[Rfam]
The family of this 147-nucleotide sequence from Odocoileus virginianus is "Small nucleolar RNA SNORA70". Lineage of the source: Eukaryota > Dipnotetrapodomorpha > Tetrapoda > Eutheria > Odocoileus virginianus. Rfam describes the family as follows. snoRNA U70 seems to be exclusive to mammals and is a member of the H/ACA class of snoRNA which contain H (ANANNA) and ACA box motifs. H/ACA box snoRNAs are involved in the conversion of uridines to pseudouridines (5-ribosyluracil) a constituent of structural RNAs (transfer, ribosomal, small nuclear, and small nucleolar).

RNA sequence: AUGUGGUUUGAAAAUGUAGGUUGCCUCUUUACCCCAUGGGGGCCUGGUGUGCAAUGGCUGCAGGCAGUAAUGUAGUGUGUAUGCAAUAGUGUAGUGCAAGCAGUCUAUUGCUUGCAUGAGUUGCCCUAAGGCACCUUGGAGACAGCC
Numbered sequence: 001a002u003g004u005g006g007u008u009u010g011a012a013a014a015u016g017u018a019g020g021u022u023g024c025c026u027c028u029u030u031a032c033c034c035c036a037u038g039g040g041g042g043c044c045u046g047g048u049g050u051g052c053a054a055u056g057g058c059u060g061c062a063g064g065c066a067g068u069a070a071u072g073u074a075g076u077g078u079g080u081a082u083g084c085a086a087u088a089g090u091g092u093a094g095u096g097c098a099a100g101c102a103g104u105c106u107a108u109u110g111c112u113u114g115c116a117u118g119a120g121u122u123g124c125c126c127u128a129a130g131g132c133a134c135c136u137u138g139g140a141g142a143c144a145g146c147c
Stems, first nucleotide, its partner, number of pairs: 002053004020048004025042004089135001091134002101123004106118001